Shown here is a 64-nucleotide RNA sequence from Mus musculus, a member of the family "mir-290 microRNA precursor family". On this family, see Houbaviy et al., Dev Cell 2003: "Embryonic stem cell-specific MicroRNAs".
RNA sequence: GUGGUACUCAAACUGUGUGACAUUUUGUUCUUUGUAAGAAGUGCCGCAGAGUUUGUAGUGUUGC
Numbered sequence: 001g002u003g004g005u006a007c008u009c010a011a012a013c014u015g016u017g018u019g020a021c022a023u024u025u026u027g028u029u030c031u032u033u034g035u036a037a038g039a040a041g042u043g044c045c046g047c048a049g050a051g052u053u054u055g056u057a058g059u060g061u062u063g064c
Stems, first nucleotide, its partner, number of pairs: 004061005011054002016048004021043004025037003